RNA sequence: AAGUGUUACAGCUCUUUUAAAAGUUGUCUAGCAAGUUUUCCAAUUUUCACUGGAACUAUU
Numbered sequence: 001a002a003g004u005g006u007u008a009c010a011g012c013u014c015u016u017u018u019a020a021a022a023g024u025u026g027u028c029u030a031g032c033a034a035g036u037u038u039u040c041c042a043a044u045u046u047u048c049a050c051u052g053g054a055a056c057u058a059u060u
Base pairs, nucleotide, nucleotide: 034057035056038055039054040053041052042051044049

Overview
U7 small nuclear RNA: a 60-nucleotide sequence from Saimiri boliviensis. It scores 42 bits against the family's covariance model. The family's consensus secondary structure was predicted with PFOLD. Taxonomically the source falls in Saimiri boliviensis (Eukaryota, Eumetazoa, Bilateria, Primates).